[Rfam]
RNA sequence: GUUCCCAGUGAUGGUAUGUAUAUAUAUAUAUAUUAACCAUGCUAAUACUGAUGUCCUUUGACGAGUAUAACAAUGCUGAGGGAGCU
Numbered sequence: 001g002u003u004c005c006c007a008g009u010g011a012u013g014g015u016a017u018g019u020a021u022a023u024a025u026a027u028a029u030a031u032a033u034u035a036a037c038c039a040u041g042c043u044a045a046u047a048c049u050g051a052u053g054u055c056c057u058u059u060g061a062c063g064a065g066u067a068u069a070a071c072a073a074u075g076c077u078g079a080g081g082g083a084g085c086u
Base pairs, nucleotide, nucleotide: 001085002084003083004082005081

This 86-nucleotide sequence from Miscanthus lutarioriparius belongs to the Rfam family "Small nucleolar RNA snoR53Y".
The family has 7 seed sequences and 513 matches in Rfam 15.1.
The literature on the family includes a 2001 paper in RNA by Brown et al., "Multiple snoRNA gene clusters from Arabidopsis".
It is annotated as a C/D-box small nucleolar RNA.
Pairs were carried over by alignment from the consensus structure, which was predicted with WAR.
The match comes from Rfam's covariance-model search (57 bits).
The organism belongs to Miscanthus, within Eukaryota.